RNA sequence: UCAGUCACUUUACUUCGUUCCUUGCCUCUACGGGUCUGACUGAGCCAAUACGAGGCUAACAAACCGUAAGGAGCAAUAAAUG
Number, nucleotide and partner (000 for none) at each position: 001u000002c000003a000004g000005u000006c000007a000008c000009u000010u000011u000012a000013c000014u000015u000016c000017g074018u073019u072020c071021c070022u069023u068024g056025c055026c054027u053028c052029u000030a000031c000032g046033g045034g000035u000036c000037u000038g000039a000040c000041u000042g000043a000044g000045c033046c032047a000048a000049u000050a000051c000052g028053a027054g026055g025056c024057u000058a000059a000060c000061a000062a000063a000064c000065c000066g000067u000068a023069a022070g021071g020072a019073g018074c017075a000076a000077u000078a000079a000080a000081u000082g000
RNA: RpsF leader
Organism: Shewanella mangrovi